GcvB RNA: a 202-nucleotide RNA from Chania multitudinisentens. Rfam links the family to the GO terms mRNA binding and regulation of gene expression. A reference for the family is Miyakoshi et al. (2015), "Cross talk between ABC transporter mRNAs via a target mRNA-derived sponge of the GcvB small RNA", EMBO J. Rfam classes the family as a non-coding RNA gene.

RNA sequence: ACUUCCCAGGCCGGAACGAAAAGGAAUUGGGUAUCGAAGAUACCGAUGAACUUUUGGCUUUGUGGUGGUGAUGUUGUGUUUGCAGAUUGUCCGGCAAUGCGGACAUGGUAGCUAAGCUACUGUUUUUUCACUUCCUGUACAUUUAUCCUGUCUGUCCAUAGUGAUUUUAUGCAGCACUGCAAAUUUUGCAGUGCUUUUUUUU
Numbered sequence: 001a002c003u004u005c006c007c008a009g010g011c012c013g014g015a016a017c018g019a020a021a022a023g024g025a026a027u028u029g030g031g032u033a034u035c036g037a038a039g040a041u042a043c044c045g046a047u048g049a050a051c052u053u054u055u056g057g058c059u060u061u062g063u064g065g066u067g068g069u070g071a072u073g074u075u076g077u078g079u080u081u082g083c084a085g086a087u088u089g090u091c092c093g094g095c096a097a098u099g100c101g102g103a104c105a106u107g108g109u110a111g112c113u114a115a116g117c118u119a120c121u122g123u124u125u126u127u128u129c130a131c132u133u134c135c136u137g138u139a140c141a142u143u144u145a146u147c148c149u150g151u152c153u154g155u156c157c158a159u160a161g162u163g164a165u166u167u168u169a170u171g172c173a174g175c176a177c178u179g180c181a182a183a184u185u186u187u188g189c190a191g192u193g194c195u196u197u198u199u200u201u202u
Stems, first nucleotide, its partner, number of pairs: 009059004015055002021053003028046001030044005088105006107121006140171003173195008
The organism belongs to Chania multitudinisentens, within Bacteria.